[Rfam]
RNA sequence: GAGUUAAUUUCACUAGCGAGGUUAAGUAGUUCAGCUACGGAGCCGGAGCGAAAGCGAGUCUGAAAAGGGCGAGGAGUUAGUGGGAUUAGACGCGAAACCUUGUGAUCUAUCCAUGGGCAGGUUGAAGCUUUGGUAACACAAAGUGGAGGACCGAACCGGUUGACGUUGAAAAGUCUUCGGAUGACCUGUGGAUAGGGGUGAAAGGCUAAUCAAACUGGGAGAUAGCUCGUA
Number, nucleotide and partner (000 for none) at each position: 001g000002a000003g000004u000005u088006a087007a086008u085009u084010u083011c082012a081013c080014u079015a078016g077017c076018g000019a000020g044021g043022u042023u041024a000025a000026g038027u037028a036029g000030u000031u000032c000033a000034g000035c000036u028037a027038c026039g000040g000041a023042g022043c021044c020045g000046g000047a000048g055049c054050g000051a000052a000053a000054g049055c048056g000057a000058g070059u069060c068061u067062g000063a000064a000065a000066a000067g061068g060069g059070c058071g000072a000073g000074g000075a000076g017077u016078u015079a014080g013081u012082g011083g010084g009085a008086u007087u006088a005089g000090a000091c229092g228093c000094g226095a000096a000097a000098c219099c218100u217101u000102g215103u214104g000105a000106u000107c195108u194109a193110u192111c191112c190113a189114u188115g187116g186117g185118c183119a000120g152121g151122u150123u149124g000125a000126a000127g144128c143129u142130u141131u140132g139133g000134u000135a000136a000137c000138a000139c132140a131141a130142a129143g128144u127145g000146g000147a000148g000149g123150a122151c121152c120153g000154a000155a000156c180157c179158g178159g000160u000161u000162g175163a174164c173165g000166u000167u000168g000169a000170a000171a000172a000173g164174u163175c162176u000177u000178c158179g157180g156181a000182u000183g118184a000185c117186c116187u115188g114189u113190g112191g111192a110193u109194a108195g107196g000197g207198g206199u205200g000201a000202a000203a000204g000205g199206c198207u197208a000209a000210u000211c000212a000213a000214a103215c102216u000217g100218g099219g098220a000221g000222a000223u000224a000225g000226c094227u000228c092229g091230u000231a000